[Rfam]
RNA: FMN riboswitch aptamer (RFN element)
RNA sequence: GCUUUCCUUCGGGGCUGGGUGAAAUUCCCAACCGGCGGUGAUCGGGGAAGCGCGGCACCGGACAUCCGGACCGCUUGCACUUUCUUCGUCAGUCCGUGACCCGGACCGCCAUUCCUUACCCGAUAUGCGGGACGGAGGCGGUACGGUGGACCUGGUGCGAAUCCGGGACCGACAGUAUAGUCUGGAUGGGAGAAGGGGAAC
Numbered sequence: 001g002c003u004u005u006c007c008u009u010c011g012g013g014g015c016u017g018g019g020u021g022a023a024a025u026u027c028c029c030a031a032c033c034g035g036c037g038g039u040g041a042u043c044g045g046g047g048a049a050g051c052g053c054g055g056c057a058c059c060g061g062a063c064a065u066c067c068g069g070a071c072c073g074c075u076u077g078c079a080c081u082u083u084c085u086u087c088g089u090c091a092g093u094c095c096g097u098g099a100c101c102c103g104g105a106c107c108g109c110c111a112u113u114c115c116u117u118a119c120c121c122g123a124u125a126u127g128c129g130g131g132a133c134g135g136a137g138g139c140g141g142u143a144c145g146g147u148g149g150a151c152c153u154g155g156u157g158c159g160a161a162u163c164c165g166g167g168a169c170c171g172a173c174a175g176u177a178u179a180g181u182c183u184g185g186a187u188g189g190g191a192g193a194a195g196g197g198g199a200a201c
Base pairs, nucleotide, nucleotide: 003199004198005197006196007195008194009193010192017029018028019027031181032180033171034170035109036108037107038106113146114145151167152166153165154164155163173184174183175182
Dot-bracket structure: ..((((((((......(((.......))).[[((((((...................................................................))))...((..............................))....(((((.......)))))..)).(((....]]))).......))))))))..